Source information: The record is a 218-nucleotide RNA sequence from Methylocystis echinoides, which matches "permuted transfer-messenger RNA" in Rfam. The organism belongs to Methylocystis, within Bacteria.
[Rfam]
Nucleotides: 218
Base pairs, nucleotide, nucleotide: 001140002139003138004137005136014130015129016128017127026119027118030116031115032114036052037051038050039049040048053101054100055099056098057097058096059095141156142155143154144153
Number, partner (000 for none) and nucleotide at each position: 001140g002139g003138c004137g005136a006000u007000a008000a009000a010000c011000g012000a013000a014130c015129a016128u017127c018000g019000u020000a021000a022000u023000a024000a025000a026119c027118c028000a029000u030116c031115c032114g033000g034000a035000c036052c037051c038050g039049g040048g041000g042000g043000c044000g045000g046000u047000a048040c049039c050038c051037g052036g053101c054100g055099c056098c057097u058096c059095c060000a061000c062000c063000a064000u065000a066000g067000c068000c069000c070000g071000c072000a073000g074000c075000c076000c077000g078000g079000a080000g081000c082000g083000g084000c085000g086000g087000g088000c089000u090000a091000u092000g093000g094000c095059g096058g097057g098056g099055g100054c101053g102000a103000a104000a105000c106000a107000g108000g109000a110000u111000c112000g113000a114032c115031g116030g117000g118027g119026g120000c121000g122000u123000a124000a125000a126000g127017g128016g129015u130014g131000c132000u133000u134000u135000u136005u137004c138003g139002c140001u141156c142155g143154g144153c145000a146000u147000g148000a149000u150000a151000c152000c153144g154143c155142c156141g157000u158000u159000a160000u161000c162000g163000g164000g165000u166000c167000a168000a169000a170000c171000c172000u173000u174000a175000u176000a177000g178000u179000u180000g181000c182000c183000a184000a185000c186000g187000a188000c189000a190000a191000c192000u193000a194000u195000g196000c197000u198000c199000c200000g201000g202000u203000g204000g205000c206000c207000g208000u209000c210000g211000c212000u213000g214000c215000g216000u217000a218000a